RNA sequence: CCUGCCCCAGCUCGUGUUACAGGCUUGGCUGCAGUGCCAUGGUUGUGUCAUUCGGUGGCAGAGAGGACAAGGCGAGGUCUUCCCCUGGUGCUCUGACCCAGGUGGGCUCCCAGGAUUGACUCAACAACCUGACAUU
Numbered sequence: 001c002c003u004g005c006c007c008c009a010g011c012u013c014g015u016g017u018u019a020c021a022g023g024c025u026u027g028g029c030u031g032c033a034g035u036g037c038c039a040u041g042g043u044u045g046u047g048u049c050a051u052u053c054g055g056u057g058g059c060a061g062a063g064a065g066g067a068c069a070a071g072g073c074g075a076g077g078u079c080u081u082c083c084c085c086u087g088g089u090g091c092u093c094u095g096a097c098c099c100a101g102g103u104g105g106g107c108u109c110c111c112a113g114g115a116u117u118g119a120c121u122c123a124a125c126a127a128c129c130u131g132a133c134a135u136u
Base pairs, nucleotide, nucleotide: 002061003060004059005058006057007055008054010052014048015047019046020045021044022043024041026039027038028037029036070130071129072128083118085113086112087111088110090107091106092105093104
A member of the RNA family "Small nucleolar RNA SNORA17" from Formicarius rufipectus, 136 nucleotides long. The base pairs follow the family's consensus structure, which was predicted with RNAalifold. About the family: snoRNA ACA 17 belongs to the H/ACA family of snoRNAs and is predicted to guide pseudouridylation of the 28S rRNA at positions U4659 and U4598. It shares the same host gene together with ACA43. The source organism's lineage runs through Eukaryota, Telluraves, Passeriformes, Formicariidae and Formicarius.